[Rfam]
RNA sequence: CUAUAUAUCGACAAUUUUCUUCAUAUAUCCUCAACAAUAUGGGUUGAGAGUCUCUACCGGGGCACCGUAAUACGCCCUGACUAUGAAGGCAGGAUGAUUUUGA
Numbered sequence: 001c002u003a004u005a006u007a008u009c010g011a012c013a014a015u016u017u018u019c020u021u022c023a024u025a026u027a028u029c030c031u032c033a034a035c036a037a038u039a040u041g042g043g044u045u046g047a048g049a050g051u052c053u054c055u056a057c058c059g060g061g062g063c064a065c066c067g068u069a070a071u072a073c074g075c076c077c078u079g080a081c082u083a084u085g086a087a088g089g090c091a092g093g094a095u096g097a098u099u100u101u102g103a
Base pairs, nucleotide, nucleotide: 018089019088020087021086022085023084024083025082030048031047032046033045034044035043058079059078060077061076062075063074